[Rfam]
RNA sequence: UCACUUUCCAAACACCCCUCAAACCGAGACCUAUAGGGUGUAUAAAUCACGUCUCUCAUACCAGCCCUGGAGGGUAGGGUUGGAAUAUUUUACCUA
Numbered sequence: 001u002c003a004c005u006u007u008c009c010a011a012a013c014a015c016c017c018c019u020c021a022a023a024c025c026g027a028g029a030c031c032u033a034u035a036g037g038g039u040g041u042a043u044a045a046a047u048c049a050c051g052u053c054u055c056u057c058a059u060a061c062c063a064g065c066c067c068u069g070g071a072g073g074g075u076a077g078g079g080u081u082g083g084a085a086u087a088u089u090u091u092a093c094c095u096a
Stems, first nucleotide, its partner, number of pairs: 013040005019035001026055005061083007
RNA: PhotoRC-II RNA